[Rfam]
RNA sequence: AAGACUUGAGAAUAGAGAUAUGGGACUAUCGCCCCCAUAAAUUGAAAGGAAAUGUGGGAAUCCCAGCCCCACCAAGUCUU
Numbered sequence: 001a002a003g004a005c006u007u008g009a010g011a012a013u014a015g016a017g018a019u020a021u022g023g024g025a026c027u028a029u030c031g032c033c034c035c036c037a038u039a040a041a042u043u044g045a046a047a048g049g050a051a052a053u054g055u056g057g058g059a060a061u062c063c064c065a066g067c068c069c070c071a072c073c074a075a076g077u078c079u080u
Stems, first nucleotide, its partner, number of pairs: 001080008012029004021065004032049001036044002054072005
RNA: skipping-rope RNA